[Rfam]
RNA: 6S / SsrS RNA
Organism: Paenibacillus lycopersici
RNA sequence: UACAUCCUGCGGUGUGCGUUACGGCUUAUAACUUGUUUUGAACCAAUGGCUGUUUUUAGGGAGACUAAUAUUGAAACGCGGCUGACAAGCCCUCGAAAAGGGAUCUCAAAAACGUUUCUGCGGCCACCCACCUGCGAGAGCGGGUUCAGAAACAAGCUAGUCGGACGGCAUGGCGGGUAACUU
Numbered sequence: 001u002a003c004a005u006c007c008u009g010c011g012g013u014g015u016g017c018g019u020u021a022c023g024g025c026u027u028a029u030a031a032c033u034u035g036u037u038u039u040g041a042a043c044c045a046a047u048g049g050c051u052g053u054u055u056u057u058a059g060g061g062a063g064a065c066u067a068a069u070a071u072u073g074a075a076a077c078g079c080g081g082c083u084g085a086c087a088a089g090c091c092c093u094c095g096a097a098a099a100g101g102g103a104u105c106u107c108a109a110a111a112a113c114g115u116u117u118c119u120g121c122g123g124c125c126a127c128c129c130a131c132c133u134g135c136g137a138g139a140g141c142g143g144g145u146u147c148a149g150a151a152a153c154a155a156g157c158u159a160g161u162c163g164g165a166c167g168g169c170a171u172g173g174c175g176g177g178u179a180a181c182u183u
Base pairs, nucleotide, nucleotide: 006177007176008175009174010173012171013170014169015168017167018166019165035153036152037151038150039148040147041146042145043144044143059129060128061127063125065123066122070119073118074117075116076115077114078113085106090102091101092100093099